A member of the RNA family "Small nucleolar RNA SNORD26" from Polioptila caerulea, 76 nucleotides long.
A search with the family's covariance model found it, with a score of 66 bits.
Lineage of the source: Eukaryota > Opisthokonta > Neoaves > Telluraves > Polioptila.
The family's RNA type in Rfam is C/D-box small nucleolar RNA.
Its Rfam clan is "SNORD26 clan".
The literature on the family includes a 1996 paper in Nature by Tycowski et al., "A mammalian gene with introns instead of exons generating stable RNA products".
[Rfam]
RNA sequence: CUGCGGGGAUGAUCACGCUGAACUCUCUCUUGCUGAUGGGGCAGUGGAGAAACUUCAUAAACAACCUCUGAGUGGC
Numbered sequence: 001c002u003g004c005g006g007g008g009a010u011g012a013u014c015a016c017g018c019u020g021a022a023c024u025c026u027c028u029c030u031u032g033c034u035g036a037u038g039g040g041g042c043a044g045u046g047g048a049g050a051a052a053c054u055u056c057a058u059a060a061a062c063a064a065c066c067u068c069u070g071a072g073u074g075g076c
Stems, first nucleotide, its partner, number of pairs: 001075004